A member of the RNA family "Small nucleolar RNA SNORA64/SNORA10 family" from Chrysochloris asiatica, 134 nucleotides long. Rfam classes the family as an H/ACA-box small nucleolar RNA. Rfam describes the family as follows. This family belongs to the H/ACA class of small nucleolar RNAs (snoRNAs) which act as guides in the the modification of uridines to pseudouridines. This family includes the human snoRNAs U64 and ACA10 and mouse MBI-29. Rfam links the family to the GO terms nucleolus and RNA processing.
RNA sequence: CCUCUCCCAGCUCUGCAUGGUCAUACCUGCUCCAAACAAGUGUGACUUUCGUAAUGUGGAGAGAGAGGAAGGCUCUUCUCUGGACCCGGGGUAGGCCUCUCUGUGGCCUCCCUUCCCAGAGUGGGGCAACAUUC
Numbered sequence: 001c002c003u004c005u006c007c008c009a010g011c012u013c014u015g016c017a018u019g020g021u022c023a024u025a026c027c028u029g030c031u032c033c034a035a036a037c038a039a040g041u042g043u044g045a046c047u048u049u050c051g052u053a054a055u056g057u058g059g060a061g062a063g064a065g066a067g068g069a070a071g072g073c074u075c076u077u078c079u080c081u082g083g084a085c086c087c088g089g090g091g092u093a094g095g096c097c098u099c100u101c102u103g104u105g106g107c108c109u110c111c112c113u114u115c116c117c118a119g120a121g122u123g124g125g126g127c128a129a130c131a132u133u134c
Stems, first nucleotide, its partner, number of pairs: 002067005008061001011059002014056002019047008075124002078121002081118003090112002093109005